[Rfam]
RNA sequence: ACUACCUUACCUAAAGAGGAUUUGUAUAUAGGUUGUACAUUUGUGUCCUUGAGUUCUAAGGAGACAAGAACCUAAGUCUGGUAGAUGAACUGUUGACCUUGUGGCUAGAGCGUGAUUAACUACCAAUGGGCGUUGGUCCAAUGGUUAUAGAGGAUCGUUCUUGGCAGGUUCAACCUGCUGGGAUGGCCACGAGACAGUAUGGCAGGCU
Numbered sequence: 001a002c003u004a005c006c007u008u009a010c011c012u013a014a015a016g017a018g019g020a021u022u023u024g025u026a027u028a029u030a031g032g033u034u035g036u037a038c039a040u041u042u043g044u045g046u047c048c049u050u051g052a053g054u055u056c057u058a059a060g061g062a063g064a065c066a067a068g069a070a071c072c073u074a075a076g077u078c079u080g081g082u083a084g085a086u087g088a089a090c091u092g093u094u095g096a097c098c099u100u101g102u103g104g105c106u107a108g109a110g111c112g113u114g115a116u117u118a119a120c121u122a123c124c125a126a127u128g129g130g131c132g133u134u135g136g137u138c139c140a141a142u143g144g145u146u147a148u149a150g151a152g153g154a155u156c157g158u159u160c161u162u163g164g165c166a167g168g169u170u171c172a173a174c175c176u177g178c179u180g181g182g183a184u185g186g187c188c189a190c191g192a193g194a195c196a197g198u199a200u201g202g203c204a205g206g207c208u
Base pairs, nucleotide, nucleotide: 001036002035005032006031007030015025017023018022041067042066043065044064046062047061048060049059050058051057076207077206078205079204080203098193099192100191101190102189103188104187105186106185107184109159110158111157112156119148122145123144124143125142127140128139129138130137131136161181162180163179164178165177166176167175168174169173